[Rfam]
RNA sequence: UUGCACGAAGCAACCCCGGGCUUCUCUGAGAUUCAAAGAUGAAGAAAGAAGCCCCAAUGCUAGUGCUAGAGCUAUUGCCGUUUAGUGUUGCAGAUUUUGUCGCUUUGUACCUUCAUCUCCACGGCCAAUCUGUGUCAAAUAAACGGCUACACUC
Numbered sequence: 001u002u003g004c005a006c007g008a009a010g011c012a013a014c015c016c017c018g019g020g021c022u023u024c025u026c027u028g029a030g031a032u033u034c035a036a037a038g039a040u041g042a043a044g045a046a047a048g049a050a051g052c053c054c055c056a057a058u059g060c061u062a063g064u065g066c067u068a069g070a071g072c073u074a075u076u077g078c079c080g081u082u083u084a085g086u087g088u089u090g091c092a093g094a095u096u097u098u099g100u101c102g103c104u105u106u107g108u109a110c111c112u113u114c115a116u117c118u119c120c121a122c123g124g125c126c127a128a129u130c131u132g133u134g135u136c137a138a139a140u141a142a143a144c145g146g147c148u149a150c151a152c153u154c
Stems, first nucleotide, its partner, number of pairs: 003066004008061001010060002018054005023048001025045003077147007086137002089134006099125003
The record is a 154-nucleotide sequence from Phtheirospermum japonicum, which matches "small nucleolar RNA snoR134" in Rfam. A search with the family's covariance model found it, with a score of 103 bits. Its family is annotated with RNA processing and nucleolus in the Gene Ontology. By type it is an H/ACA-box small nucleolar RNA. NCBI's taxonomy places the organism under Eukaryota, Streptophytina, lamiids, Orobanchaceae, Phtheirospermum. The literature on the family includes a 2009 paper in Nucleic Acids Res by Chen and Wu, "Mining small RNA sequencing data: a new approach to identify small nucleolar RNAs in Arabidopsis".